RNA sequence: GGCGCUCAGCCUGACCCCCCGGGGCUGAGCGCGACGGCCCUAGUAUCCCUCCCCCACGAACACGCUGGGGCCGUCCUAU
Numbered sequence: 001g002g003c004g005c006u007c008a009g010c011c012u013g014a015c016c017c018c019c020c021g022g023g024g025c026u027g028a029g030c031g032c033g034a035c036g037g038c039c040c041u042a043g044u045a046u047c048c049c050u051c052c053c054c055c056a057c058g059a060a061c062a063c064g065c066u067g068g069g070g071c072c073g074u075c076c077u078a079u
Stems, first nucleotide, its partner, number of pairs: 002032011033075012
The record is a 79-nucleotide RNA sequence from Segniliparus rugosus, which matches "6C RNA" in Rfam. A search with the family's covariance model found it, with a score of 53 bits. For this family Rfam cites "Identification of 22 candidate structured RNAs in bacteria using the CMfinder comparative genomics pipeline" (Weinberg et al., Nucleic Acids Res, 2007). The family's RNA type in Rfam is cis-regulatory element.